[Rfam]
The record is a 93-nucleotide RNA from a Rhodobacterales bacterium, which matches "Glycine riboswitch aptamer" in Rfam. It scores 72 bits against the family's covariance model. Its family is annotated with glycine biosynthetic process in the Gene Ontology. Lineage of the source: Bacteria > Pseudomonadati > Pseudomonadota > Alphaproteobacteria > Rhodobacterales.
RNA sequence: CGAAGCUGUGCGGGAGAGGCCGGUUGAAAAGACACCGGCGCCGAAGGAGCAACCGCCCCGGAAACUCUCAGGCAAAAGGACCGCACAAGCGAC
Number, nucleotide and partner (000 for none) at each position: 001c000002g000003a000004a000005g000006c000007u087008g086009u085010g084011c083012g082013g081014g000015a000016g000017a000018g000019g000020c038021c037022g036023g035024u000025u000026g000027a000028a000029a000030a000031g000032a000033c000034a000035c023036c022037g021038g020039c000040g073041c072042c071043g069044a068045a000046g000047g067048a066049g065050c000051a000052a000053c061054c060055g000056c000057c000058c000059c000060g054061g053062a000063a000064a000065c049066u048067c047068u044069c043070a000071g042072g041073c040074a000075a000076a000077a000078g000079g000080a000081c013082c012083g011084c010085a009086c008087a007088a000089g000090c000091g000092a000093c000